[Rfam]
RNA sequence: AACUGACAUAAGGGCCACAGCAGAAGUGUUCAUGUUGUGGCCAGUCAGAUACCAACAAAUCUGCAAUUUCUACU
Numbered sequence: 001a002a003c004u005g006a007c008a009u010a011a012g013g014g015c016c017a018c019a020g021c022a023g024a025a026g027u028g029u030u031c032a033u034g035u036u037g038u039g040g041c042c043a044g045u046c047a048g049a050u051a052c053c054a055a056c057a058a059a060u061c062u063g064c065a066a067u068u069u070c071u072a073c074u
Stems, first nucleotide, its partner, number of pairs: 013042004019074002022071004026038003046063005

Notes:
This 74-nucleotide RNA from Alligator sinensis belongs to the Rfam family "Mammalian CPEB3 ribozyme". The family's consensus secondary structure is taken from published work. NCBI's taxonomy places the organism under Eukaryota, Metazoa, Deuterostomia, Archosauria, Alligator. For this family Rfam cites "A genomewide search for ribozymes reveals an HDV-like sequence in the human CPEB3 gene" (Salehi-Ashtiani et al., Science, 2006). The match comes from Rfam's covariance-model search (47 bits). Gene Ontology term of the family: RNA nuclease activity. Rfam describes the family as follows. The mammalian CPEB3 ribozyme is a self cleaving RNA located in the second intron of the CPEB3 gene which belongs to a family of genes regulating messenger RNA polyadenylation.